[Rfam]
RNA sequence: GCCAGGAACGGUGGCUUGUGCCUGUAAUCCAAGCACUGGGGAGGCUGAGGCUGGUGGACGGCUUGAGCCUGGGGGUUCUGGGCUGUAGCGAGCUGUGCCGAGCAGGCAUCUAUGCUAAGUUUCGGCAUCGAUAUGGUGGUCUUGGGGGAGCCGGGGGCCACCAGGUCACUUAAGGUGGGGUGAACCAGCCCUGGUUGGAGAUGGAGCAGGUCAAAGCUCCUGGGAUGAUCAGUAUGAUGGUGCCUGUGAACAGUCCCUGUAGCACAGUCUGGGCGAGAGAGCAGGACCCAGUUUUCC
Numbered sequence: 001g002c003c004a005g006g007a008a009c010g011g012u013g014g015c016u017u018g019u020g021c022c023u024g025u026a027a028u029c030c031a032a033g034c035a036c037u038g039g040g041g042a043g044g045c046u047g048a049g050g051c052u053g054g055u056g057g058a059c060g061g062c063u064u065g066a067g068c069c070u071g072g073g074g075g076u077u078c079u080g081g082g083c084u085g086u087a088g089c090g091a092g093c094u095g096u097g098c099c100g101a102g103c104a105g106g107c108a109u110c111u112a113u114g115c116u117a118a119g120u121u122u123c124g125g126c127a128u129c130g131a132u133a134u135g136g137u138g139g140u141c142u143u144g145g146g147g148g149a150g151c152c153g154g155g156g157g158c159c160a161c162c163a164g165g166u167c168a169c170u171u172a173a174g175g176u177g178g179g180g181u182g183a184a185c186c187a188g189c190c191c192u193g194g195u196u197g198g199a200g201a202u203g204g205a206g207c208a209g210g211u212c213a214a215a216g217c218u219c220c221u222g223g224g225a226u227g228a229u230c231a232g233u234a235u236g237a238u239g240g241u242g243c244c245u246g247u248g249a250a251c252a253g254u255c256c257c258u259g260u261a262g263c264a265c266a267g268u269c270u271g272g273g274c275g276a277g278a279g280a281g282c283a284g285g286a287c288c289c290a291g292u293u294u295u296c297c
Base pairs, nucleotide, nucleotide: 001045002044003043004023005022006021008019009018010017011016028042029041030040047295048294049293050292051291052290053289054288059284061282062281063280064279067274068273069272070271071270072269073268078267079266080265082263083262084261085260086259087258088257090255092254093253094252095251096250098248102247103246104245105244106243107242108241109240110236116234117233119230122228123227124226126224128222130167131166132165134163135162136161137160138159139158140157141156142155143154145152146151169175170174177220178219179218180217181216188211189210190209195204196203197202

Rfam assigns this 297-nucleotide RNA from Arenaria interpres to the family "Metazoan signal recognition particle RNA". Its Rfam clan is "SRP clan". By type it is a non-coding RNA gene. It scores 174 bits against the family's covariance model.